mir-290 microRNA precursor family: a 66-nucleotide RNA from Prolemur simus. Taxonomically the source falls in Prolemur (Eukaryota, Opisthokonta, Bilateria, Sarcopterygii). The base pairs follow the family's consensus structure, which was predicted with RNAalifold. Gene Ontology terms of the family: RISC complex and miRNA-mediated post-transcriptional gene silencing. Its Rfam clan is "mir-290 clan".
RNA sequence: GUGUUACUCAAAAUGGAGGCACUUGCCUUUGUCUCGACUGGAAAGUGCUUCCAUUUUGGGUGCCGC
Numbered sequence: 001g002u003g004u005u006a007c008u009c010a011a012a013a014u015g016g017a018g019g020c021a022c023u024u025g026c027c028u029u030u031g032u033c034u035c036g037a038c039u040g041g042a043a044a045g046u047g048c049u050u051c052c053a054u055u056u057u058g059g060g061u062g063c064c065g066c
Base pairs, nucleotide, nucleotide: 005062006061007060008059009058010057011056012055013054014053015052016051017050018049019048020047021046022045023044026041027040